Shown here is a 309-nucleotide RNA sequence from Phyllostomus discolor, a member of the family "Vascular endothelial growth factor (VEGF) IRES A". The base pairs follow the family's consensus structure, which is taken from published work. Rfam's curators write: This family represents the vascular endothelial growth factor (VEGF) internal ribosome entry site (IRES) A. VEGF is an endothelial cell mitogen with many crucial functions such as embryogenic development and wound healing. The 5' UTR of VEGF mRNA contains two IRES elements which are able to promote efficient translation at the AUG start codon, this family represents IRES A. The source organism's lineage runs through Eukaryota, Vertebrata, Eutheria, Laurasiatheria and Phyllostomus. The literature on the family includes a 1998 paper in Mol Cell Biol by Huez et al., "Two independent internal ribosome entry sites are involved in translation initiation of vascular endothelial growth factor mRNA". Gene Ontology term of the family: ribosome binding.
RNA sequence: ACUAACGCGGGCCGGGAGGAGCCCCAGUCCGAGGAGGGGGAGGAGGAAGAAGAGAAGGAAGAGGAGAGGGGGCCGCGGUGGCGACUAGGCUCUCGGAAGCCGGGCUCAUGGACGGGUGAGGCGGCUGUGUGCGCAGACAGUGCUCCAGACGCGCGCGCGCCCCAGGCCCCGGCCCGGGCCUCGGAUCGGGGAGGAAGAGGAGCUCGCCCAGGCGACGAAGAGAGCGGGCCGCCCCGCAGCCCGAGCCGGAGAGGGAGCUCAAGCCGCGCCGGCCCCGGCCGGGCCUCCGAAACCAUGAACUUUCUGCUC
Numbered sequence: 001a002c003u004a005a006c007g008c009g010g011g012c013c014g015g016g017a018g019g020a021g022c023c024c025c026a027g028u029c030c031g032a033g034g035a036g037g038g039g040g041a042g043g044a045g046g047a048a049g050a051a052g053a054g055a056a057g058g059a060a061g062a063g064g065a066g067a068g069g070g071g072g073c074c075g076c077g078g079u080g081g082c083g084a085c086u087a088g089g090c091u092c093u094c095g096g097a098a099g100c101c102g103g104g105c106u107c108a109u110g111g112a113c114g115g116g117u118g119a120g121g122c123g124g125c126u127g128u129g130u131g132c133g134c135a136g137a138c139a140g141u142g143c144u145c146c147a148g149a150c151g152c153g154c155g156c157g158c159g160c161c162c163c164a165g166g167c168c169c170c171g172g173c174c175c176g177g178g179c180c181u182c183g184g185a186u187c188g189g190g191g192a193g194g195a196a197g198a199g200g201a202g203c204u205c206g207c208c209c210a211g212g213c214g215a216c217g218a219a220g221a222g223a224g225c226g227g228g229c230c231g232c233c234c235c236g237c238a239g240c241c242c243g244a245g246c247c248g249g250a251g252a253g254g255g256a257g258c259u260c261a262a263g264c265c266g267c268g269c270c271g272g273c274c275c276c277g278g279c280c281g282g283g284c285c286u287c288c289g290a291a292a293c294c295a296u297g298a299a300c301u302u303u304c305u306g307c308u309c
Stems, first nucleotide, its partner, number of pairs: 002036002006033001008031001010029003014023002048308002051305002054302002057294002061287004069276006075269002078267005089260001092257003101243006109236003114163003118160001120158001121156003124152002128147002131143004165233003171230006179220001181218003186212002189208002191205003